[Rfam]
Nucleotides: 080
Stems, first nucleotide, its partner, number of pairs: 018047003024080007031043001033041001052069002055066004
Number, partner (000 for none) and nucleotide at each position: 001000a002000g003000a004000g005000g006000u007000c008000g009000c010000a011000a012000g013000u014000u015000c016000a017000c018047g019046g020045c021000c022000a023000u024080a025079g026078c027077a028076g029075a030074a031043g032000a033041g034000c035000u036000c037000a038000u039000a040000g041033c042000a043031c044000a045020g046019c047018c048000c049000u050000g051000u052069c053068a054000a055066a056065u057064u058063u059000c060000a061000a062000u063058g064057a065056a066055u067000c068053u069052g070000g071000g072000a073000a074030u075029u076028c077027u078026g079025c080024u